Glycine riboswitch aptamer: a 108-nucleotide RNA from Litoreibacter ponti. Rfam links the family to the GO term glycine biosynthetic process. This family represents the bacterial glycine riboswitch. Glycine riboswitches usually consist of two metabolite-binding aptamers domains with similar structures in tandem. The aptamers cooperatively bind glycine to regulate the expression of downstream genes. The organism belongs to Litoreibacter, within Bacteria.
RNA sequence: CCAAGUCCGGAGAGUGGCACGCAUCCGUGCCCGCCGACGGAGAAAGCCCGCCCCGCGACGAUCGUGGUGCCGGGUGAAGCUCUCAGGCUCCCUAACGGACGGGGCAUG
Numbered sequence: 001c002c003a004a005g006u007c008c009g010g011a012g013a014g015u016g017g018c019a020c021g022c023a024u025c026c027g028u029g030c031c032c033g034c035c036g037a038c039g040g041a042g043a044a045a046g047c048c049c050g051c052c053c054c055g056c057g058a059c060g061a062u063c064g065u066g067g068u069g070c071c072g073g074g075u076g077a078a079g080c081u082c083u084c085a086g087g088c089u090c091c092c093u094a095a096c097g098g099a100c101g102g103g104g105c106a107u108g
Base pairs, nucleotide, nucleotide: 002103005100006099007098008097009096016031017030018029019028033088034087035086036084037083040082041081042080046075047074048073049072050071